[Rfam]
The record is a 110-nucleotide RNA from Caenorhabditis latens, which matches "SL2 RNA" in Rfam. Pairs were carried over by alignment from the consensus structure, which is taken from published work. For this family Rfam cites "Trans-spliced leader RNA, 5S-rRNA genes and novel variant orphan spliced-leader of the lymphatic filarial nematode Wuchereria bancrofti, and a sensitive polymerase chain reaction based detection assay" (Dassanayake et al., Gene, 2001). Rfam describes the family as follows. This family represents SL2 RNA. SL2 RNA is involved in trans splicing in lower eukaryotes. Trans-splicing is a form of RNA processing. The acquisition of a spliced leader from a SL RNA is a intra-molecular reaction which precisely joins exons derived from separately transcribed RNAs. Approximately 25% of C. elegans genes are organised into polycistronic transcription units and the presence of SL2 on an mRNA is an indication the the gene is in an operon. It scores 102 bits against the family's covariance model.
RNA sequence: GGUUUUAACCCAGUUACUCAAGGUACGCUGGAGUUCCGACCAUUCGAAAGAAUGUGUUGAACAACUAUAACUUUUGGAACCGCUCUGCUGGGGUCAUCCGGCGGAGCAAA
Dot-bracket structure: ......((((..(((((.....))).)).))..)).(((((((((....))))).))))........................(.(.(((.((....))..))).).)..